The family of this 171-nucleotide sequence from Aneurinibacillus soli is "M-box riboswitch aptamer (ykoK leader)". M-box riboswitch, also know as ykoK leader is described as a metaloregulatory RNA that sense divalent metals and function as a genetic control element of genes related to divalent metal transport in bacteria. It was first reported upstream of the B.subtilis ykoK gene and genes with related functions in other bacteria.

RNA sequence: UAAUGUCCUCGUUAGGUGAGGUUCCUAUACAAACACAGGCCACUGCCGAGAAACAUCGAAAGAUGCCAAUCGGUAGAGCAGGGAUCGUCGGAUUAAGGCGUUCUUUAAGGUGGCUGAGAACCAAUUUUCUCUACGUUGUAUAGUGCCAAAGCUUUACUAGGGGGAGCAACA
Numbered sequence: 001u002a003a004u005g006u007c008c009u010c011g012u013u014a015g016g017u018g019a020g021g022u023u024c025c026u027a028u029a030c031a032a033a034c035a036c037a038g039g040c041c042a043c044u045g046c047c048g049a050g051a052a053a054c055a056u057c058g059a060a061a062g063a064u065g066c067c068a069a070u071c072g073g074u075a076g077a078g079c080a081g082g083g084a085u086c087g088u089c090g091g092a093u094u095a096a097g098g099c100g101u102u103c104u105u106u107a108a109g110g111u112g113g114c115u116g117a118g119a120a121c122c123a124a125u126u127u128u129c130u131c132u133a134c135g136u137u138g139u140a141u142a143g144u145g146c147c148a149a150a151g152c153u154u155u156a157c158u159a160g161g162g163g164g165a166g167c168a169a170c171a
Stems, first nucleotide, its partner, number of pairs: 005167002008164003011157002013096001015153003020147003025143008039114005045074005054065004081105004087099003116131003